RNA sequence: CCCUCCUACAAAGGCGUGUCUGUAGUUCCCUGUCUUUGGACACGUAAGAAUCGGAGGAAGAGAAACGUGGAUUUGGAGAAGUCUGGGGCCAGCUUGCUUCCUGCAGGCUCAAGAUCAACCAUCCAACAGAG
Dot-bracket structure: .(((((........(((((((...(...)........)))))))........)))))...........(((.(.................(((((((.....)))))))...........)))).......
Numbered sequence: 001c002c003c004u005c006c007u008a009c010a011a012a013g014g015c016g017u018g019u020c021u022g023u024a025g026u027u028c029c030c031u032g033u034c035u036u037u038g039g040a041c042a043c044g045u046a047a048g049a050a051u052c053g054g055a056g057g058a059a060g061a062g063a064a065a066c067g068u069g070g071a072u073u074u075g076g077a078g079a080a081g082u083c084u085g086g087g088g089c090c091a092g093c094u095u096g097c098u099u100c101c102u103g104c105a106g107g108c109u110c111a112a113g114a115u116c117a118a119c120c121a122u123c124c125a126a127c128a129g130a131g
Stems, first nucleotide, its partner, number of pairs: 002057005015044007025029001069124003073121001091109007
Small nucleolar RNA SNORA38: a 131-nucleotide sequence from Felis catus.
ACA38 is a member of the H/ACA class of snoRNA that guide the sites of modification of uridines to pseudouridines.
The family's RNA type in Rfam is H/ACA-box small nucleolar RNA.